The family of this 70-nucleotide RNA sequence from Orthohepacivirus hominis is "Hepatitis C virus stem-loop VII". Rfam classes the family as a cis-regulatory element. A reference for the family is Mauger et al. (2015), "Functionally conserved architecture of hepatitis C virus RNA genomes", Proc Natl Acad Sci U S A. It is one of the family's seed sequences. Lineage of the source: Viruses > Riboviria > Orthornavirae > Hepaciviridae > Orthohepacivirus.
RNA sequence: CAGGCUACUGUCCCAAGGGGGAAAAGCCGCUAUUUGCGGCAAGUACCUCUUUAAUUGGGCAGUAAAAACC
Number, nucleotide and partner (000 for none) at each position: 001c000002a000003g000004g000005c000006u065007a000008c000009u062010g000011u000012c059013c058014c057015a056016a055017g050018g049019g048020g047021g046022a000023a000024a000025a000026g040027c039028c038029g037030c036031u000032a000033u000034u000035u000036g030037c029038g028039g027040c026041a000042a000043g000044u000045a000046c021047c020048u019049c018050u017051u000052u000053a000054a000055u016056u015057g014058g013059g012060c000061a000062g009063u000064a000065a006066a000067a000068a000069c000070c000